[Rfam]
A member of the RNA family "mir-1202 microRNA precursor family" from Callithrix jacchus, 80 nucleotides long. Gene Ontology terms of the family: RISC complex and miRNA-mediated post-transcriptional gene silencing. Lineage of the source: Eukaryota > Eumetazoa > Sarcopterygii > Primates > Callithrix.
RNA sequence: GCUGCAGAGAUGCCAGCUGCAGUGGAGAAGGCACUGCUGGGGCUGCCCACUCUAUGGAGCCAGCAGGUGUCCAGAACAGG
Numbered sequence: 001g002c003u004g005c006a007g008a009g010a011u012g013c014c015a016g017c018u019g020c021a022g023u024g025g026a027g028a029a030g031g032c033a034c035u036g037c038u039g040g041g042g043c044u045g046c047c048c049a050c051u052c053u054a055u056g057g058a059g060c061c062a063g064c065a066g067g068u069g070u071c072c073a074g075a076a077c078a079g080g
Stems, first nucleotide, its partner, number of pairs: 002079003009071006016064004020059001022055006030047004034042002
Description
The family's consensus secondary structure was predicted with RNAalifold.